[Rfam]
RNA sequence: UAAUAUUGCAGAUAGAAAUAUGCUGUAUAUCCGUGUAAGCGAGUUAACGCUUAAGCGACAUAAUGAUGUCGUCGCUCACGGAGCCGCCUAAUGGCGGUUUUUUAAUUU
Numbered sequence: 001u002a003a004u005a006u007u008g009c010a011g012a013u014a015g016a017a018a019u020a021u022g023c024u025g026u027a028u029a030u031c032c033g034u035g036u037a038a039g040c041g042a043g044u045u046a047a048c049g050c051u052u053a054a055g056c057g058a059c060a061u062a063a064u065g066a067u068g069u070c071g072u073c074g075c076u077c078a079c080g081g082a083g084c085c086g087c088c089u090a091a092u093g094g095c096g097g098u099u100u101u102u103u104a105a106u107u108u
Stems, first nucleotide, its partner, number of pairs: 007027005012021003030082006038076004042051003055072006083098006
The record is a 108-nucleotide RNA, which matches "DUF3800-I RNA" in Rfam. It is annotated as a small RNA. Actinobacteria, Firmicutes, Fusobacteria, Proteobacteria (1 example), Tenericutes (2 examples).